[Rfam]
RNA sequence: CACUUAUUAAUAAGAUGUUUUUUAUUAAAAAUGUCUGAAUAUAUUAACUCCAUAGUGAUUUCAGUGCAUUACUGAGAUAAGCU
Dot-bracket structure: ..((((((...................................................................))))))..
Numbered sequence: 001c002a003c004u005u006a007u008u009a010a011u012a013a014g015a016u017g018u019u020u021u022u023u024a025u026u027a028a029a030a031a032u033g034u035c036u037g038a039a040u041a042u043a044u045u046a047a048c049u050c051c052a053u054a055g056u057g058a059u060u061u062c063a064g065u066g067c068a069u070u071a072c073u074g075a076g077a078u079a080a081g082c083u
Stems, first nucleotide, its partner, number of pairs: 003081006